[Rfam]
Rfam assigns this 50-nucleotide RNA sequence from Chelonobacter oris to the family "L31-Gammaproteobacteria ribosomal protein leader". A reference for the family is Eckert and Weinberg (2020), "Discovery of 20 novel ribosomal leader candidates in bacteria and archaea", BMC Microbiol. Rfam's curators put it in the seed alignment. The source organism's lineage runs through Bacteria, Pseudomonadota, Gammaproteobacteria, Pasteurellales and Chelonobacter. Rfam classes the family as a cis-regulatory leader.
RNA sequence: CAUAUGGUGUCGGACUGGUUUCCGAUAGCGAUAUGGCUUCAAUCCGAGGU
Numbered sequence: 001c002a003u004a005u006g007g008u009g010u011c012g013g014a015c016u017g018g019u020u021u022c023c024g025a026u027a028g029c030g031a032u033a034u035g036g037c038u039u040c041a042a043u044c045c046g047a048g049g050u
Base pairs, nucleotide, nucleotide: 001035002034003033004032005031007029008028011024012023013022014021